[Rfam]
RNA sequence: AUUUCAACACAUCUCAUGUUAAGGUUCAAC
Numbered sequence: 001a002u003u004u005c006a007a008c009a010c011a012u013c014u015c016a017u018g019u020u021a022a023g024g025u026u027c028a029a030c
Stems, first nucleotide, its partner, number of pairs: 009019004
Dot-bracket structure: ........((((...))))...........
RNA: CRISPR RNA direct repeat element
Organism: Sporanaerobacter sp. PP17-6a